TPP riboswitch aptamer (THI element): a 128-nucleotide sequence from Streptoalloteichus hindustanus.
NCBI's taxonomy places the organism under Bacteria, Bacillati, Actinomycetes, Pseudonocardiales, Streptoalloteichus.
[Rfam]
Nucleotides: 128
Base pairs, nucleotide, nucleotide: 006116010112011079012078013077014076017034018033019032020031021030041073042072043071044070045069085109086108087107088106090103091102092101093100
Number, partner (000 for none) and nucleotide at each position: 001000a002000a003000c004000u005000g006116c007000a008000c009000a010112c011079g012078c013077g014076g015000g016000a017034g018033c019032u020031c021030g022000c023000g024000c025000c026000g027000u028000a029000g030021c031020g032019g033018g034017c035000u036000g037000a038000g039000a040000g041073g042072g043071c044070g045069g046000c047000u048000g049000g050000u051000g052000u053000c054000g055000a056000u057000c058000g059000c060000g061000a062000c063000c064000c065000g066000g067000u068000g069045c070044c071043g072042c073041c074000g075000a076014c077013c078012g079011c080000u081000c082000g083000a084000a085109c086108c087107u088106g089000a090103c091102c092101g093100g094000g095000u096000a097000a098000u099000g100093c101092c102091g103090g104000c105000g106088u107087a108086g109085g110000g111000a112010g113000g114000a115000a116006g117000a118000g119000a120000u121000g122000a123000c124000g125000g126000c127000u128000c
Vitamin B(1) in its active form thiamin pyrophosphate (TPP) is an essential coenzyme that is synthesised by coupling of pyrimidine and thiazole moieties in bacteria.